[Rfam]
Rfam assigns this 93-nucleotide sequence from [Clostridium] aminophilum to the family "c-di-GMP-I riboswitch aptamer". A search with the family's covariance model found it, with a score of 72 bits. Taxonomically the source falls in Lachnoclostridium (Bacteria, Bacillati, Bacillota, Lachnospirales). The family's consensus secondary structure is taken from published work. Rfam describes the family as follows. GEMM was predicted in a large-scale screen for bacterial structured RNA regulatory elements.
RNA sequence: UAAUAACGAUGGCAAAGCCCAUGAAAAUGGGUGACGCAAAACUAUAGGGACUAAAGAUUACUCGUUAUUGAUCAAUGUCAGCCAGUUACCGAA
Numbered sequence: 001u002a003a004u005a006a007c008g009a010u011g012g013c014a015a016a017g018c019c020c021a022u023g024a025a026a027a028u029g030g031g032u033g034a035c036g037c038a039a040a041a042c043u044a045u046a047g048g049g050a051c052u053a054a055a056g057a058u059u060a061c062u063c064g065u066u067a068u069u070g071a072u073c074a075a076u077g078u079c080a081g082c083c084a085g086u087u088a089c090c091g092a093a
Base pairs, nucleotide, nucleotide: 012037013036017032018031019030020029021028022027040087041086042085043084047083048082049079050078051077056073057072058071059070